[Rfam]
The record is a 501-nucleotide part of an RNA from Methanomassiliicoccaceae archaeon DOK, which matches "Archaeal small subunit ribosomal RNA" in Rfam. Clan: SSU clan.
RNA sequence: ACUCCGGUUGAUCCUGCCGGCGGCCACCGCUAUAGGAAUUCGAUUAAGACAUGCGAGUCGAGAGUCUUCGGGACUCGGCGGACUGCUCAGUAACACGUGGAGAACGUGCCCUUAAGUGGAGGAUAAUCUCGGGAAAUUGAGGAUAAUACUCCAUAGAUCAUGGGAUCUGGAAUGACCCAUGGUUGAAAGUUCCGGCGCUUAAGGAUCGCUCUGCGGCCUAUCAGGUAGUAGUGGGUGUAACGUACCCCCUAGCCGACGACGGGUAUGGGCCUUGAGAGAGGGAGCCCAGAGUUGGAUUCUGAGACACGAAUCCAGGCCCUACGGGGCGCAGCAGUCGCGAAAACUUCACACUGGGGGCAACCCCGAUGAGGGAAUUCCUAGUGCUAGGACAUUUGUUCUAGCUUUUCUCAAGCGUAGAUAACUUGAGGAAUAAGGGCUGGGUAAGACGGGUGCCAGCCGCCGCGGUAAUACCUGCAGCCCAAGUGGUGGUCGAUUUUAUUG
Numbered sequence: 001a002c003u004c005c006g007g008u009u010g011a012u013c014c015u016g017c018c019g020g021c022g023g024c025c026a027c028c029g030c031u032a033u034a035g036g037a038a039u040u041c042g043a044u045u046a047a048g049a050c051a052u053g054c055g056a057g058u059c060g061a062g063a064g065u066c067u068u069c070g071g072g073a074c075u076c077g078g079c080g081g082a083c084u085g086c087u088c089a090g091u092a093a094c095a096c097g098u099g100g101a102g103a104a105c106g107u108g109c110c111c112u113u114a115a116g117u118g119g120a121g122g123a124u125a126a127u128c129u130c131g132g133g134a135a136a137u138u139g140a141g142g143a144u145a146a147u148a149c150u151c152c153a154u155a156g157a158u159c160a161u162g163g164g165a166u167c168u169g170g171a172a173u174g175a176c177c178c179a180u181g182g183u184u185g186a187a188a189g190u191u192c193c194g195g196c197g198c199u200u201a202a203g204g205a206u207c208g209c210u211c212u213g214c215g216g217c218c219u220a221u222c223a224g225g226u227a228g229u230a231g232u233g234g235g236u237g238u239a240a241c242g243u244a245c246c247c248c249c250u251a252g253c254c255g256a257c258g259a260c261g262g263g264u265a266u267g268g269g270c271c272u273u274g275a276g277a278g279a280g281g282g283a284g285c286c287c288a289g290a291g292u293u294g295g296a297u298u299c300u301g302a303g304a305c306a307c308g309a310a311u312c313c314a315g316g317c318c319c320u321a322c323g324g325g326g327c328g329c330a331g332c333a334g335u336c337g338c339g340a341a342a343a344c345u346u347c348a349c350a351c352u353g354g355g356g357g358c359a360a361c362c363c364c365g366a367u368g369a370g371g372g373a374a375u376u377c378c379u380a381g382u383g384c385u386a387g388g389a390c391a392u393u394u395g396u397u398c399u400a401g402c403u404u405u406u407c408u409c410a411a412g413c414g415u416a417g418a419u420a421a422c423u424u425g426a427g428g429a430a431u432a433a434g435g436g437c438u439g440g441g442u443a444a445g446a447c448g449g450g451u452g453c454c455a456g457c458c459g460c461c462g463c464g465g466u467a468a469u470a471c472c473u474g475c476a477g478c479c480c481a482a483g484u485g486g487u488g489g490u491c492g493a494u495u496u497u498a499u500u501g
Base pairs, nucleotide, nucleotide: 004020005019006018007017008016022491023490024489025488026487027486028485029484030483031482033380034379035378036377037376038375039374040373041372042338048336049335050334052333053332054331057079058078059077062076063075064074065073066072067071086291087290088289096215097214098213099212100211101210102209105208106207110204111203112202113201114200115199116198118152119151120150121149127142128141129140130139131138132137157183158182159181160180161179162178163177164176166175167174189196190195217263218262219261224254225253226252229251230250231249233247234246235245236244266288267287268286269285270281271280272279273278293314294313295312296311297310298309316327317326318325319324344370346369347368348367352365353364354363355362356361383402384401385400386399387398388397389396390395407427408426409425410424411423412422434480435479436478437477438476439475447474448473449472450471456463457462
Annotation: Rfam 15.1 lists 709 matches to the family in 491 species. A search with the family's covariance model found it, with a score of 1502 bits. The base pairs follow the family's consensus structure, which is taken from published work.